[Rfam]
RNA sequence: UCCCUGCUUUACCUCCCUGAGCAGGAGCGUCGGCGUGAUGACAGCGUCGAAGCUUUAUGGCCCCGGCUCUUGCCGGGGCCGCGUUUUUU
Numbered sequence: 001u002c003c004c005u006g007c008u009u010u011a012c013c014u015c016c017c018u019g020a021g022c023a024g025g026a027g028c029g030u031c032g033g034c035g036u037g038a039u040g041a042c043a044g045c046g047u048c049g050a051a052g053c054u055u056u057a058u059g060g061c062c063c064c065g066g067c068u069c070u071u072g073c074c075g076g077g078g079c080c081g082c083g084u085u086u087u088u089u
Base pairs, nucleotide, nucleotide: 003025004024005023006022007021008020027053028052030050031049032048033047034046035045036044060079061078062077063076064075065074066073067072